mir-147 microRNA precursor family: a 77-nucleotide RNA from Diceros bicornis. Taxonomically the source falls in Diceros bicornis (Eukaryota, Teleostomi, Tetrapoda, Rhinocerotidae). The base pairs follow the family's consensus structure, which was predicted with RNAalifold. Gene Ontology terms of the family: RISC complex and miRNA-mediated post-transcriptional gene silencing.

[Rfam]
RNA sequence: UAUGUAUCUAGUGGAACAUUUCCACUUAGACUAGACCGUGGAAACUAGUGUGUGGAAAUGCUUCUGCUAUAAGUUUA
Numbered sequence: 001u002a003u004g005u006a007u008c009u010a011g012u013g014g015a016a017c018a019u020u021u022c023c024a025c026u027u028a029g030a031c032u033a034g035a036c037c038g039u040g041g042a043a044a045c046u047a048g049u050g051u052g053u054g055g056a057a058a059u060g061c062u063u064c065u066g067c068u069a070u071a072a073g074u075u076u077a
Stems, first nucleotide, its partner, number of pairs: 001077002004074002007071001009069008017060009027050002031048002
Dot-bracket structure: ((.((.(.(((((((((((((((((.((..((..............)))).))))))))).)))))))).).)).))